[Rfam]
RNA sequence: AUCGCUUCUUAGCCUUUUGGCUAAGAUCAAGUGUUCUUUGUUAUCUGUUCUUAUCAGUUUAAAAUCUGAUACUUUCUCUCCCUAAGGGCAGUAAAUUAAAUGGACUUUUUUAAAUAUGGAGCUGGAAUAGGAGCUUUCUCUGUAUCCAUGUACUGACCUGGUAUUUCAGGACCUUGAGAAACAGGACAUCAGAA
Number, nucleotide and partner (000 for none) at each position: 001a000002u000003c000004g000005c000006u000007u026008c025009u024010u000011a022012g021013c020014c019015u000016u000017u000018u000019g014020g013021c012022u011023a000024a009025g008026a007027u000028c000029a000030a000031g000032u000033g000034u000035u000036c000037u000038u000039u000040g000041u000042u000043a000044u000045c000046u000047g000048u000049u000050c000051u000052u071053a070054u069055c068056a067057g066058u000059u000060u000061a000062a000063a000064a000065u000066c057067u056068g055069a054070u053071a052072c000073u000074u088075u087076c086077u085078c000079u000080c000081c000082c000083u000084a000085a077086g076087g075088g074089c000090a000091g000092u000093a000094a000095a000096u000097u000098a000099a000100a000101u000102g000103g000104a000105c000106u000107u000108u000109u000110u000111u000112a000113a000114a000115u000116a000117u000118g147119g146120a145121g000122c000123u000124g000125g143126a000127a000128u000129a000130g141131g140132a139133g138134c000135u000136u000137u000138c133139u132140c131141u130142g000143u125144a000145u120146c119147c118148a000149u000150g187151u186152a000153c184154u183155g182156a000157c000158c178159u177160g000161g175162u000163a000164u000165u000166u000167c000168a000169g000170g000171a000172c000173c000174u000175u161176g000177a159178g158179a000180a000181a000182c155183a154184g153185g000186a151187c150188a000189u000190c000191a000192g000193a000194a000
Shown here is a 194-nucleotide RNA sequence from Dipodomys ordii, a member of the family "U2 spliceosomal RNA". U2 is a small nuclear RNA (snRNA) component of the spliceosome (involved in pre-mRNA splicing). Complementary binding between U2 snRNA (in an area lying towards the 5' end but 3' to hairpin I) and the branchpoint sequence (BPS) of the intron results the bulging out of an unpaired adenosine, on the BPS, which initiates a nucleophilic attack at the intronic 5' splice site, thus starting the first of two transesterification reactions that mediate splicing. It is annotated as a spliceosomal small nuclear RNA. It scores 98 bits against the family's covariance model.